The family of this 114-nucleotide sequence from Winogradskyella epiphytica is "Group II catalytic intron D1-D4-2". The pairing is the family consensus, mapped onto this sequence. Rfam's curators write: Group II introns are found in rRNA, tRNA and mRNA of organelles in fungi, plants and protists, and also in mRNA in bacteria. The literature on the family includes a 2001 paper in Trends Genet by Bonen and Vogel, "The ins and outs of group II introns".
[Rfam]
RNA sequence: GAGAAUUGGACUAUCGGAUAAGUAGUGUAGUCUACUUUUUCAAACCGCCUUAAGGUGCUUUUGUAAAGAGCAAAGGUAUUGAGCGUUAAGGUCAAGGCAGCUAAAGCCGUUUGU
Numbered sequence: 001g002a003g004a005a006u007u008g009g010a011c012u013a014u015c016g017g018a019u020a021a022g023u024a025g026u027g028u029a030g031u032c033u034a035c036u037u038u039u040u041c042a043a044a045c046c047g048c049c050u051u052a053a054g055g056u057g058c059u060u061u062u063g064u065a066a067a068g069a070g071c072a073a074a075g076g077u078a079u080u081g082a083g084c085g086u087u088a089a090g091g092u093c094a095a096g097g098c099a100g101c102u103a104a105a106g107c108c109g110u111u112u113g114u
Stems, first nucleotide, its partner, number of pairs: 001015002004012001016041003020037002023034003048091006054080002057077003061073004097114004